Rfam assigns this 356-nucleotide part of an RNA from Candidatus Cardinium hertigii to the family "Bacterial large subunit ribosomal RNA". Gene Ontology terms of the family: structural constituent of ribosome and ribosome. The source organism's lineage runs through Bacteria, Pseudomonadati, Cytophagia, Amoebophilaceae and Candidatus Cardinium.
[Rfam]
RNA sequence: CGAGUGAGUCGUGGCCAAGGAACUCGGCAAAAUAGCCCUGUAACUUCGGGAGAAAGGGUGCCUCAUUCAUCUUCUUUAGGGAGGGUGAGUAGGCCGCAGUGAAGAGGCCCAGGCGACUGUUUACCAAAAACACAGGACUUUGCAAAAUCGAAAGAUGAAGUAUAAGGUCUGAUACCUGCCCGGUGCUGGAAGGUUAAUAGGAGGGGUUAAGCCGCAAGGUUGAAGCUCUGAAUAGAAGCCCCAGUAAACGGCGGCCGUAACCUUGACGGUCCUAAGGUAGCGAAAUUCCUUGUCGGGUAAAUUCCGACCUGCACGAAUGGUGUAACGAUCUGGGCGCUGUCUCAGCCACGAGCUCG
Number, nucleotide and partner (000 for none) at each position: 001c356002g355003a354004g353005u000006g000007a000008g000009u351010c350011g349012u348013g347014g346015c345016c000017a000018a342019g341020g340021a000022a000023c000024u000025c000026g000027g000028c000029a000030a000031a000032a000033u000034a000035g059036c058037c057038c056039u055040g000041u000042a000043a000044c049045u000046u000047c000048g000049g044050g000051a000052g000053a000054a000055a039056g038057g037058g036059u035060g094061c093062c092063u091064c000065a000066u000067u000068c000069a000070u085071c084072u083073u082074c081075u080076u000077u000078a000079g000080g075081g074082a073083g072084g071085g070086u000087g000088a000089g000090u000091a063092g062093g061094c060095c099096g000097c000098a000099g095100u000101g000102a000103a000104g000105a000106g000107g335108c334109c333110c332111a331112g330113g329114c327115g326116a000117c000118u132119g131120u130121u000122u000123a000124c000125c000126a000127a000128a000129a000130a120131c119132a118133c000134a000135g170136g169137a168138c167139u166140u165141u164142g163143c160144a000145a000146a000147a156148u155149c154150g000151a000152a000153a000154g149155a148156u147157g000158a000159a000160g143161u000162a000163u142164a141165a140166g139167g138168u137169c136170u135171g000172a000173u322174a321175c320176c319177u000178g252179c251180c250181c000182g000183g249184u248185g245186c244187u243188g242189g241190a000191a000192g240193g239194u238195u000196a000197a000198u234199a233200g000201g000202a000203g229204g228205g227206g226207u225208u000209a000210a221211g220212c219213c218214g000215c000216a000217a000218g213219g212220u211221u210222g000223a000224a000225g207226c206227u205228c204229u203230g000231a000232a000233u199234a198235g000236a000237a000238g194239c193240c192241c189242c188243a187244g186245u185246a000247a000248a184249c183250g180251g179252c178253g271254g270255c269256c268257g267258u266259a000260a000261c000262c000263u000264u000265g000266a258267c257268g256269g255270u254271c253272c276273u000274a000275a000276g272277g000278u000279a000280g000281c000282g309283a000284a000285a000286u000287u000288c000289c000290u000291u000292g308293u307294c306295g305296g304297g303298u000299a000300a000301a000302u000303u297304c296305c295306g294307a293308c292309c282310u000311g000312c000313a000314c000315g000316a000317a000318u000319g176320g175321u174322g173323u000324a000325a000326c115327g114328a000329u113330c112331u111332g110333g109334g108335c107336g000337c000338u000339g000340u020341c019342u018343c000344a000345g015346c014347c013348a012349c011350g010351a009352g000353c004354u003355c002356g001
It scores 2655 bits against the family's covariance model.